[Rfam]
A member of the RNA family "FMN riboswitch aptamer (RFN element)" from Paenibacillus silvestris, 181 nucleotides long. Rfam describes the family as follows. The RFN element is a highly conserved domain that is found frequently in the 5'-untranslated regions of prokaryotic mRNAs that encode for flavin mononucleotide (FMN) biosynthesis and transport proteins. This element is a metabolite-dependent riboswitch that directly binds FMN in the absence of proteins. In Bacillus subtilis, the riboswitch most likely controls gene expression by causing premature transcription termination within the 5' untranslated region of the ribDEAHT operon and precluding access to the ribosome-binding site of ypaA mRNA.The FMN riboswitch structure, reported in present an FMN-bound six-stem junction, adopts a butterfly-like scaffold, stapled together by opposingly directed but nearly identically folded peripheral domains. The match comes from Rfam's covariance-model search (99 bits). Lineage of the source: Bacteria > Bacillati > Bacillota > Caryophanales > Paenibacillus.
RNA sequence: GCAAACCUUCGGGGCGUGGUGAAAUUCCACACCGGCGGUGAUUCGACGGCAGGUUCUUUAUCUGCUAUCGAUUAGUCCGUGACCCGUUUUGAAGCUAGCGGUACCUGAUAUACAGCUUCGCUACGGCUGACCCGGUGAGAAUCCGGGACCGACAGUAUAGUCUGGAUGGGAGAAGGAAUAC
Numbered sequence: 001g002c003a004a005a006c007c008u009u010c011g012g013g014g015c016g017u018g019g020u021g022a023a024a025u026u027c028c029a030c031a032c033c034g035g036c037g038g039u040g041a042u043u044c045g046a047c048g049g050c051a052g053g054u055u056c057u058u059u060a061u062c063u064g065c066u067a068u069c070g071a072u073u074a075g076u077c078c079g080u081g082a083c084c085c086g087u088u089u090u091g092a093a094g095c096u097a098g099c100g101g102u103a104c105c106u107g108a109u110a111u112a113c114a115g116c117u118u119c120g121c122u123a124c125g126g127c128u129g130a131c132c133c134g135g136u137g138a139g140a141a142u143c144c145g146g147g148a149c150c151g152a153c154a155g156u157a158u159a160g161u162c163u164g165g166a167u168g169g170g171a172g173a174a175g176g177a178a179u180a181c
Stems, first nucleotide, its partner, number of pairs: 003179001006176005017029003031161002033151002035080004075149002084126004131147005153164003